Background:
Rfam assigns this 119-nucleotide RNA sequence from Aquilegia coerulea to the family "U5 spliceosomal RNA".
RNA sequence: AGCUGCGUGGUGAGCACAAAGCGAACUAUUCUUUCGCCUUUUACUAAAGAAUACCGUGUGCUCUCCACAUUAAGUAGCAUACACUAAUUUUUUUAGGGAUUUCCCCACUUAUGUGGAGA
Numbered sequence: 001a002g003c004u005g006c007g008u009g010g011u012g013a014g015c016a017c018a019a020a021g022c023g024a025a026c027u028a029u030u031c032u033u034u035c036g037c038c039u040u041u042u043a044c045u046a047a048a049g050a051a052u053a054c055c056g057u058g059u060g061c062u063c064u065c066c067a068c069a070u071u072a073a074g075u076a077g078c079a080u081a082c083a084c085u086a087a088u089u090u091u092u093u094u095a096g097g098g099a100u101u102u103c104c105c106c107a108c109u110u111a112u113g114u115g116g117a118g119a
Base pairs, nucleotide, nucleotide: 003077004076005075006074008067009066010065012063013062014061015060016059017058018057027053028052029051030050031049032048033047034046102119103118105116106115107114
The family's RNA type in Rfam is spliceosomal small nuclear RNA. From the family's description: U5 RNA is a component of both types of known spliceosome. It scores 90 bits against the family's covariance model. Lineage of the source: Eukaryota > Viridiplantae > Spermatophyta > Ranunculaceae > Aquilegia. Gene Ontology terms of the family: spliceosomal tri-snRNP complex assembly and U5 snRNP.